[Rfam]
RNA sequence: AUAUGUCUUCAGGGCAGGGUGUGAUUCCCUACCGGUGGUUAUAGCCCACGAGCCGCAAGGCAGAUUCGGUGUAAUUCCGAGGCCGACAGUAUAGUCUGGAUGAAAGAAGAUAAGU
Number, nucleotide and partner (000 for none) at each position: 001a000002u000003a000004u112005g111006u110007c109008u108009u107010c106011a000012g000013g000014g000015c000016a000017g029018g028019g027020u000021g000022u000023g000024a000025u000026u000027c019028c018029c017030u000031a095032c094033c085034g084035g049036u048037g047038g046039u000040u000041a000042u000043a000044g083045c082046c038047c037048a036049c035050g000051a000052g061053c060054c059055g000056c000057a000058a000059g054060g053061c052062a000063g000064a000065u081066u080067c079068g078069g077070u000071g000072u000073a000074a000075u000076u000077c069078c068079g067080a066081g065082g045083c044084c034085g033086a000087c098088a097089g096090u000091a000092u000093a000094g032095u031096c089097u088098g087099g000100a000101u000102g000103a000104a000105a000106g010107a009108a008109g007110a006111u005112a004113a000114g000115u000
RNA: FMN riboswitch aptamer (RFN element)
Organism: Aminipila terrae